[Rfam]
RNA sequence: UUGUUUGAGGGGCGCUGCAACAGAACUCUCUGCUAGGCUCAAGCAAGACUGUGGUAAAUAACGGCGCUCAUCGUAU
Numbered sequence: 001u002u003g004u005u006u007g008a009g010g011g012g013c014g015c016u017g018c019a020a021c022a023g024a025a026c027u028c029u030c031u032g033c034u035a036g037g038c039u040c041a042a043g044c045a046a047g048a049c050u051g052u053g054g055u056a057a058a059u060a061a062c063g064g065c066g067c068u069c070a071u072c073g074u075a076u
Stems, first nucleotide, its partner, number of pairs: 002045007021032004
Dot-bracket structure: .(((((((............((((....))))......)))))))...............................
A member of the RNA family "SAH (S-adenosyl-L-homocysteine) riboswitch aptamer" from Pelistega europaea, 76 nucleotides long. A search with the family's covariance model found it, with a score of 53 bits. NCBI's taxonomy places the organism under Bacteria, Pseudomonadati, Pseudomonadota, Alcaligenaceae, Pelistega. The base pairs follow the family's consensus structure, which is taken from published work.